Rfam assigns this 118-nucleotide RNA from Blastococcus mobilis to the family "Group II catalytic intron D1-D4-2". Lineage of the source: Bacteria > Bacillati > Actinomycetota > Geodermatophilaceae > Blastococcus. The match comes from Rfam's covariance-model search (99 bits). On this family, see Lehmann and Schmidt, Crit Rev Biochem Mol Biol 2003: "Group II introns: structure and catalytic versatility of large natural ribozymes". Group II introns are found in rRNA, tRNA and mRNA of organelles in fungi, plants and protists, and also in mRNA in bacteria. Rfam links the family to the GO term Group II intron splicing. The family has 144 seed sequences and 1,231 matches in Rfam 15.1.

RNA sequence: GAAGGUUCGGCCCUUCGGUGCCGCCCUGCGGGGGGAGGUAUCAAACCGCCUCAUGCUGCGUUGGCUGAAGACCGUCGUGGUGAGCGAUGAGGAGAAGGCGCGGAUUACCGUGUCAGGU
Numbered sequence: 001g002a003a004g005g006u007u008c009g010g011c012c013c014u015u016c017g018g019u020g021c022c023g024c025c026c027u028g029c030g031g032g033g034g035g036a037g038g039u040a041u042c043a044a045a046c047c048g049c050c051u052c053a054u055g056c057u058g059c060g061u062u063g064g065c066u067g068a069a070g071a072c073c074g075u076c077g078u079g080g081u082g083a084g085c086g087a088u089g090a091g092g093a094g095a096a097g098g099c100g101c102g103g104a105u106u107a108c109c110g111u112g113u114c115a116g117g118u
Stems, first nucleotide, its partner, number of pairs: 001016005017042006024035004047117001049092006055081002058078003062074003097114006